[Rfam]
RNA: mir-282 microRNA precursor family
Organism: Plutella xylostella
RNA sequence: CCGGGACCUUGACCUAGCCUCUCCUUGGCUUUGUCUGUGUCGUUCACUUCAGACAUAGCCUGUUAGAGGUUACGUUAAACCCACGGC
Numbered sequence: 001c002c003g004g005g006a007c008c009u010u011g012a013c014c015u016a017g018c019c020u021c022u023c024c025u026u027g028g029c030u031u032u033g034u035c036u037g038u039g040u041c042g043u044u045c046a047c048u049u050c051a052g053a054c055a056u057a058g059c060c061u062g063u064u065a066g067a068g069g070u071u072a073c074g075u076u077a078a079a080c081c082c083a084c085g086g087c
Base pairs, nucleotide, nucleotide: 012075013074015072016071017070018069019068020067027060028059029058030057032055033054034053035052036051